[Rfam]
Shown here is a 61-nucleotide RNA from Callithrix jacchus, a member of the family "U7 small nuclear RNA". On this family, see Spycher et al., Nucleic Acids Res 1994: "3' end processing of mouse histone pre-mRNA: evidence for additional base-pairing between U7 snRNA and pre-mRNA". The family has 49 seed sequences and 10,439 matches in Rfam 15.1. Taxonomically the source falls in Callithrix (Eukaryota, Metazoa, Simiiformes, Callithrix). The family's consensus secondary structure was predicted with PFOLD.

RNA sequence: UAGUGUUACACUCUUUUAGAAUUUGCCUGGUAGGCUUUGCAGUUUUUACCAGAAAGCCCCU
Numbered sequence: 001u002a003g004u005g006u007u008a009c010a011c012u013c014u015u016u017u018a019g020a021a022u023u024u025g026c027c028u029g030g031u032a033g034g035c036u037u038u039g040c041a042g043u044u045u046u047u048a049c050c051a052g053a054a055a056g057c058c059c060c061u
Base pairs, nucleotide, nucleotide: 033058034057035056036055037054038053042049043048